RNA sequence: GCAGACAUAACACCACGAUGCUCGUUCCACACAGAACCAUUCUUGCGUUCUUCUUCGCGAGCGGGUAAGGUCUGAGAACUACUCCCUCGAUUGGCUCUAGCUGGGCCCUUUGCCAGGCUUGGUUUUGACCAACAUAUCAGAAAACCGUCUCUCGCUGUACGGUCUGCGUUUCAGGUUCCUUGCGGCAUUUCAUCUUGUAUACUCGAAGAUCAGGUUCAGUGUGUUUCCUCAAUAAUGCCACUGGAUUCUGGGAGAGUGUAAAAAGGGAGUCUUGGAAAUUGUUGGGGAGUUUUGCGGUGCUUGGGCUAUUUGGAGUGCUCCGUCGACAUAGCAAUGUUUCUUGAAGAAACGCAGAAGUCAGGACAAGCAACUAUGGCUGUGGGCUGCACCAGGUUGGUUGUUCCUUCAAGUUACUAUGGGGCAUCUAGGCGAGUCACAAACUUGCCUCGGGUUGCCAUUGGUGUCUUCCUGAUUGACAAGUCAGCGUCACUUCUGCCCAAUGGAUAAGAGCUUGAGGAAUGUGGCAUCUUCGGGUGUGAUAGCCUCUUGUUGUAUACAUUGGUUGGGGCAACAGGCAUGCUAUCAUGUCCUGGCUGAUAAGCAUGAAGGUUGUUUUGCAAUGCACACACCAAUGGUAUCAUCCUGUGUCCACUUUCUACAAAUGUCCAAGCAUCCUUUAGUGCACUUUGUGGUACAUGAUUGCCCUUGAAAGCAUCUUCAGAUGUUUUCAGGCUCAUGCAACUCAAUUCAGACUAUUCUAUGUCUGC
Numbered sequence: 001g002c003a004g005a006c007a008u009a010a011c012a013c014c015a016c017g018a019u020g021c022u023c024g025u026u027c028c029a030c031a032c033a034g035a036a037c038c039a040u041u042c043u044u045g046c047g048u049u050c051u052u053c054u055u056c057g058c059g060a061g062c063g064g065g066u067a068a069g070g071u072c073u074g075a076g077a078a079c080u081a082c083u084c085c086c087u088c089g090a091u092u093g094g095c096u097c098u099a100g101c102u103g104g105g106c107c108c109u110u111u112g113c114c115a116g117g118c119u120u121g122g123u124u125u126u127g128a129c130c131a132a133c134a135u136a137u138c139a140g141a142a143a144a145c146c147g148u149c150u151c152u153c154g155c156u157g158u159a160c161g162g163u164c165u166g167c168g169u170u171u172c173a174g175g176u177u178c179c180u181u182g183c184g185g186c187a188u189u190u191c192a193u194c195u196u197g198u199a200u201a202c203u204c205g206a207a208g209a210u211c212a213g214g215u216u217c218a219g220u221g222u223g224u225u226u227c228c229u230c231a232a233u234a235a236u237g238c239c240a241c242u243g244g245a246u247u248c249u250g251g252g253a254g255a256g257u258g259u260a261a262a263a264a265g266g267g268a269g270u271c272u273u274g275g276a277a278a279u280u281g282u283u284g285g286g287g288a289g290u291u292u293u294g295c296g297g298u299g300c301u302u303g304g305g306c307u308a309u310u311u312g313g314a315g316u317g318c319u320c321c322g323u324c325g326a327c328a329u330a331g332c333a334a335u336g337u338u339u340c341u342u343g344a345a346g347a348a349a350c351g352c353a354g355a356a357g358u359c360a361g362g363a364c365a366a367g368c369a370a371c372u373a374u375g376g377c378u379g380u381g382g383g384c385u386g387c388a389c390c391a392g393g394u395u396g397g398u399u400g401u402u403c404c405u406u407c408a409a410g411u412u413a414c415u416a417u418g419g420g421g422c423a424u425c426u427a428g429g430c431g432a433g434u435c436a437c438a439a440a441c442u443u444g445c446c447u448c449g450g451g452u453u454g455c456c457a458u459u460g461g462u463g464u465c466u467u468c469c470u471g472a473u474u475g476a477c478a479a480g481u482c483a484g485c486g487u488c489a490c491u492u493c494u495g496c497c498c499a500a501u502g503g504a505u506a507a508g509a510g511c512u513u514g515a516g517g518a519a520u521g522u523g524g525c526a527u528c529u530u531c532g533g534g535u536g537u538g539a540u541a542g543c544c545u546c547u548u549g550u551u552g553u554a555u556a557c558a559u560u561g562g563u564u565g566g567g568g569c570a571a572c573a574g575g576c577a578u579g580c581u582a583u584c585a586u587g588u589c590c591u592g593g594c595u596g597a598u599a600a601g602c603a604u605g606a607a608g609g610u611u612g613u614u615u616u617g618c619a620a621u622g623c624a625c626a627c628a629c630c631a632a633u634g635g636u637a638u639c640a641u642c643c644u645g646u647g648u649c650c651a652c653u654u655u656c657u658a659c660a661a662a663u664g665u666c667c668a669a670g671c672a673u674c675c676u677u678u679a680g681u682g683c684a685c686u687u688u689g690u691g692g693u694a695c696a697u698g699a700u701u702g703c704c705c706u707u708g709a710a711a712g713c714a715u716c717u718u719c720a721g722a723u724g725u726u727u728u729c730a731g732g733c734u735c736a737u738g739c740a741a742c743u744c745a746a747u748u749c750a751g752a753c754u755a756u757u758c759u760a761u762g763u764c765u766g767c
Stems, first nucleotide, its partner, number of pairs: 001767004007761003012693007020062005034050004072751005082289004093107005112123004129285006150269001695738005
Rfam assigns this 767-nucleotide sequence from Rhodocollybia butyracea to the family "Nuclear RNase P". Lineage of the source: Eukaryota > Agaricomycetes > Agaricales > Marasmiineae > Rhodocollybia. From the family's description: Ribonuclease P (RNase P) is a ubiquitous endoribonuclease, found in archaea, bacteria and eukarya as well as chloroplasts and mitochondria. Its best characterised activity is the generation of mature 5'-ends of tRNAs by cleaving the 5'-leader elements of precursor-tRNAs. Cellular RNase Ps are ribonucleoproteins.